RNA: Small nucleolar RNA SNORA57
RNA sequence: CCUCCAUUUCUUGGCAUACAUGUGGUUGUUUAGUACCCGUGUAUGUAAUGUACGGAGGAACAGUAAAUGCAGCGCUAUGUCUUCGGUACCGGUGUGUAUUUGAUGGUCUGCCGGUUCUAUCCUCAAUCGCUGUUACAUUC
Numbered sequence: 001c002c003u004c005c006a007u008u009u010c011u012u013g014g015c016a017u018a019c020a021u022g023u024g025g026u027u028g029u030u031u032a033g034u035a036c037c038c039g040u041g042u043a044u045g046u047a048a049u050g051u052a053c054g055g056a057g058g059a060a061c062a063g064u065a066a067a068u069g070c071a072g073c074g075c076u077a078u079g080u081c082u083u084c085g086g087u088a089c090c091g092g093u094g095u096g097u098a099u100u101u102g103a104u105g106g107u108c109u110g111c112c113g114g115u116u117c118u119a120u121c122c123u124c125a126a127u128c129g130c131u132g133u134u135a136c137a138u139u140c
Stems, first nucleotide, its partner, number of pairs: 001058005015045006022038001024037003070132005089114006